Shown here is a 73-nucleotide RNA sequence from Proteiniclasticum sediminis, a member of the family "tRNA". The match comes from Rfam's covariance-model search (74 bits). Gene Ontology term of the family: triplet codon-amino acid adaptor activity. Transfer RNA (tRNA) molecules are approximately 80 nucleotides in length.
RNA sequence: GCCCAUAUAGCUCAGUUGGUAGAGCGUCGCCUUGGUAAGGCGGAGGUCAGCGGUUCAAAUCCGCUUAUGGGCU
Numbered sequence: 001g002c003c004c005a006u007a008u009a010g011c012u013c014a015g016u017u018g019g020u021a022g023a024g025c026g027u028c029g030c031c032u033u034g035g036u037a038a039g040g041c042g043g044a045g046g047u048c049a050g051c052g053g054u055u056c057a058a059a060u061c062c063g064c065u066u067a068u069g070g071g072c073u
Stems, first nucleotide, its partner, number of pairs: 001072007010025004027043005049065005
Dot-bracket structure: (((((((..((((........)))).(((((.......))))).....(((((.......)))))))))))).